Shown here is a 101-nucleotide sequence from Cricetibacter osteomyelitidis, a member of the family "Aggregatibacter sRNA 22". By type it is a small RNA. Rfam 15.1 lists 101 matches to the family in 35 species.
RNA sequence: AUGCCGUCUGACAAAAGCCGCAGGCUUUUGAACGUCGGCUCUGCCGACGGCCCGAAGGGUGAGCAAGCGAACGAGUGAGCUUGCGAAUAAAAUGAAAUUCA
Dot-bracket structure: ...........((((((((...))))))))..(((((((...)))))))((((...))))..((((((..(....)..))))))...(.(........).)